[Rfam]
Nucleotides: 048
Base pairs, nucleotide, nucleotide: 003048004047006046008044009043010042011041016038017037018036019035020034021033023032024031
Number, partner (000 for none) and nucleotide at each position: 001000c002000c003048g004047g005000c006046c007000u008044c009043c010042g011041g012000u013000u014000c015000a016038c017037c018036c019035g020034c021033a022000u023032c024031g025000c026000a027000u028000u029000c030000g031024c032023g033021u034020g035019c036018g037017g038016g039000a040000c041011c042010c043009g044008g045000c046006g047004c048003c
A member of the RNA family "L31-Actinobacteria ribosomal protein leader", 48 nucleotides long. A reference for the family is Eckert and Weinberg (2020), "Discovery of 20 novel ribosomal leader candidates in bacteria and archaea", BMC Microbiol.